[Rfam]
RNA: terC RNA
Organism: Tardiphaga sp.
RNA sequence: GUCCAGGCCCGGGCCCCUCUGACAGUUCAUGUGAGCUGUGAUGUCGGACUGAACGU
Number, nucleotide and partner (000 for none) at each position: 001g000002u000003c000004c000005a000006g050007g049008c000009c047010c046011g045012g044013g000014c000015c000016c000017c000018u000019c000020u000021g000022a039023c038024a037025g036026u035027u034028c033029a000030u000031g000032u000033g028034a027035g026036c025037u024038g023039u022040g000041a000042u000043g000044u012045c011046g010047g009048a000049c007050u006051g000052a000053a000054c000055g000056u000